A member of the RNA family "Salmonella enterica Typhi npcRNA 44" from primary endosymbiont of Sitophilus zeamais, 117 nucleotides long. The literature on the family includes a 2010 paper in Nucleic Acids Res by Chinni et al., "Experimental identification and characterization of 97 novel npcRNA candidates in Salmonella enterica serovar Typhi". Rfam classes the family as a non-coding RNA gene.
RNA sequence: CUUUAACAAUCCGGAACAAGCUGAAAAUUUGAAACACAUGCUGAAGUGCAAACUCAGUAUGCGAGUCUCUCAAACGAAGUAAGCAAACCUGAGAUAACGCGCAAGCGUUAUCACUGU
Numbered sequence: 001c002u003u004u005a006a007c008a009a010u011c012c013g014g015a016a017c018a019a020g021c022u023g024a025a026a027a028u029u030u031g032a033a034a035c036a037c038a039u040g041c042u043g044a045a046g047u048g049c050a051a052a053c054u055c056a057g058u059a060u061g062c063g064a065g066u067c068u069c070u071c072a073a074a075c076g077a078a079g080u081a082a083g084c085a086a087a088c089c090u091g092a093g094a095u096a097a098c099g100c101g102c103a104a105g106c107g108u109u110a111u112c113a114c115u116g117u
Base pairs, nucleotide, nucleotide: 020084021083025080028077029076035063037061038060039059040058041057042056043055044054089116091114093112094111095110096109